[Rfam]
RNA sequence: GCCGGGCCCGGUGGCUUGUGCCUGUAAUCCAAGCGCCGGGGAGGCUGAGGCUGGCGGACGGCUUGAGCCUGGGGGUUCUGGGCUGCACUGCAGCGGGCUGAGCGGGUGUCCGCGCUAAGGCCGGCAUCGAUAUGGUGGUCCUGGGGGAGCCAUGGGCCACCAGGUCGCCUAAGGAGGGGUGAACCGGCCCAGGUCGGAGACGGAGCAGGUCAAAGCUCCCGUGCUGGUCAGUAGUGGGAUCGCGCCUGUGAAUAGCCCCUGUAGCACAGCCCGGGCGAGAGAG
Numbered sequence: 001g002c003c004g005g006g007c008c009c010g011g012u013g014g015c016u017u018g019u020g021c022c023u024g025u026a027a028u029c030c031a032a033g034c035g036c037c038g039g040g041g042a043g044g045c046u047g048a049g050g051c052u053g054g055c056g057g058a059c060g061g062c063u064u065g066a067g068c069c070u071g072g073g074g075g076u077u078c079u080g081g082g083c084u085g086c087a088c089u090g091c092a093g094c095g096g097g098c099u100g101a102g103c104g105g106g107u108g109u110c111c112g113c114g115c116u117a118a119g120g121c122c123g124g125c126a127u128c129g130a131u132a133u134g135g136u137g138g139u140c141c142u143g144g145g146g147g148a149g150c151c152a153u154g155g156g157c158c159a160c161c162a163g164g165u166c167g168c169c170u171a172a173g174g175a176g177g178g179g180u181g182a183a184c185c186g187g188c189c190c191a192g193g194u195c196g197g198a199g200a201c202g203g204a205g206c207a208g209g210u211c212a213a214a215g216c217u218c219c220c221g222u223g224c225u226g227g228u229c230a231g232u233a234g235u236g237g238g239a240u241c242g243c244g245c246c247u248g249u250g251a252a253u254a255g256c257c258c259c260u261g262u263a264g265c266a267c268a269g270c271c272c273g274g275g276c277g278a279g280a281g282a283g
Stems, first nucleotide, its partner, number of pairs: 001045003004023004009018003028042003062283003067276007078269003082265004091261003095253001098250001102249008110238002113236005119229009128167004133162009144151002168174002176219005186211004194203003
About this RNA:
The family of this 283-nucleotide RNA from Phalacrocorax carbo is "Metazoan signal recognition particle RNA". The organism belongs to Phalacrocorax, within Eukaryota. The match comes from Rfam's covariance-model search (178 bits). The literature on the family includes a 2002 paper in Curr Opin Struct Biol by Wild et al., "Towards the structure of the mammalian signal recognition particle". Its family is annotated with SRP-dependent cotranslational protein targeting to membrane, signal sequence recognition and signal recognition particle, endoplasmic reticulum targeting in the Gene Ontology. It is annotated as a non-coding RNA gene.